[Rfam]
RNA sequence: GUCGCAUGCCCUUCUUGGGUGUUUCCUCCCUAGACUUGGGCCGCCUUCGGGCGGCUCUUUUUUUGUCCAGG
Numbered sequence: 001g002u003c004g005c006a007u008g009c010c011c012u013u014c015u016u017g018g019g020u021g022u023u024u025c026c027u028c029c030c031u032a033g034a035c036u037u038g039g040g041c042c043g044c045c046u047u048c049g050g051g052c053g054g055c056u057c058u059u060u061u062u063u064u065g066u067c068c069a070g071g
Stems, first nucleotide, its partner, number of pairs: 008020004039056007